[Rfam]
RNA sequence: CGAACCACGACGGGAGAGCUCGCCCCGGUCCUCGACCGGGGCGGCGCCGAAGGAGCAAGUCCUCCCCGGGAAUCUCUCAGGCCCACGUACCGUCGCGGCGAG
Numbered sequence: 001c002g003a004a005c006c007a008c009g010a011c012g013g014g015a016g017a018g019c020u021c022g023c024c025c026c027g028g029u030c031c032u033c034g035a036c037c038g039g040g041g042c043g044g045c046g047c048c049g050a051a052g053g054a055g056c057a058a059g060u061c062c063u064c065c066c067c068g069g070g071a072a073u074c075u076c077u078c079a080g081g082c083c084c085a086c087g088u089a090c091c092g093u094c095g096c097g098g099c100g101a102g
Base pairs, nucleotide, nucleotide: 006097008095009094010093011092012091013090020044021043022042023041024040025039026038027037028036029035046082047081048080049078050077053076054075055074060068

Rfam assigns this 102-nucleotide RNA sequence from Cellulosimicrobium sp. CUA-896 to the family "Glycine riboswitch aptamer". Lineage of the source: Bacteria > Actinomycetota > Micrococcales > Promicromonosporaceae > Cellulosimicrobium. From the family's description: This family represents the bacterial glycine riboswitch.